[Rfam]
Rfam assigns this 85-nucleotide RNA sequence from Syntrophobacter fumaroxidans to the family "c-di-GMP-I riboswitch aptamer".
GEMM was predicted in a large-scale screen for bacterial structured RNA regulatory elements.
It scores 77 bits against the family's covariance model.
NCBI's taxonomy places the organism under Bacteria, Thermodesulfobacteriota, Syntrophobacteria, Syntrophobacter, Syntrophobacter fumaroxidans.
RNA sequence: GUUUGGAAAAGGCAAACUAUUCGAAAGACUGGGACGCAAAGCUUCUGGCCUAAGUCCAAAAGGAUAUGGCAGCAGAGCCGCCGAG
Numbered sequence: 001g002u003u004u005g006g007a008a009a010a011g012g013c014a015a016a017c018u019a020u021u022c023g024a025a026a027g028a029c030u031g032g033g034a035c036g037c038a039a040a041g042c043u044u045c046u047g048g049c050c051u052a053a054g055u056c057c058a059a060a061a062g063g064a065u066a067u068g069g070c071a072g073c074a075g076a077g078c079c080g081c082c083g084a085g
Stems, first nucleotide, its partner, number of pairs: 012037002017032003021028002041078003045075003048070003055064003